[Rfam]
Shown here is a 102-nucleotide sequence from Halalkalibacter oceani, a member of the family "Purine riboswitch aptamer". It scores 78 bits against the family's covariance model. The source organism's lineage runs through Bacteria, Bacillati, Bacilli, Caryophanales and Halalkalibacter.
RNA sequence: UUGUAUAGGAGAAAAAGCCUUCGUAUAUCCUUAGGAAUAUGGCCUAAGAGUCUCUACCGGAUGACCGAGAAUCAUCUGACUAUGAAGCAGAUUCUGUUAUGC
Numbered sequence: 001u002u003g004u005a006u007a008g009g010a011g012a013a014a015a016a017g018c019c020u021u022c023g024u025a026u027a028u029c030c031u032u033a034g035g036a037a038u039a040u041g042g043c044c045u046a047a048g049a050g051u052c053u054c055u056a057c058c059g060g061a062u063g064a065c066c067g068a069g070a071a072u073c074a075u076c077u078g079a080c081u082a083u084g085a086a087g088c089a090g091a092u093u094c095u096g097u098u099a100u101g102c
Stems, first nucleotide, its partner, number of pairs: 019087007030048006058078007